Rfam assigns this 105-nucleotide sequence from Gossypium gossypioides to the family "MIR1446 microRNA precursor family". The organism belongs to Gossypium, within Eukaryota. Rfam links the family to the GO terms miRNA-mediated post-transcriptional gene silencing and RISC complex.
RNA sequence: CCAACAAUCACUAACUCUCUCCCUCAACGGCUAUUCUGGUAUAUGGAUAUGCAAAUCCUUGUUACUUGGAGUAGCCGUUGAGGUGAGAGCGUUAUAGAAUGUUGG
Numbered sequence: 001c002c003a004a005c006a007a008u009c010a011c012u013a014a015c016u017c018u019c020u021c022c023c024u025c026a027a028c029g030g031c032u033a034u035u036c037u038g039g040u041a042u043a044u045g046g047a048u049a050u051g052c053a054a055a056u057c058c059u060u061g062u063u064a065c066u067u068g069g070a071g072u073a074g075c076c077g078u079u080g081a082g083g084u085g086a087g088a089g090c091g092u093u094a095u096a097g098a099a100u101g102u103u104g105g
Stems, first nucleotide, its partner, number of pairs: 001105005009097001012094004017089005022083004027078008036069001039065003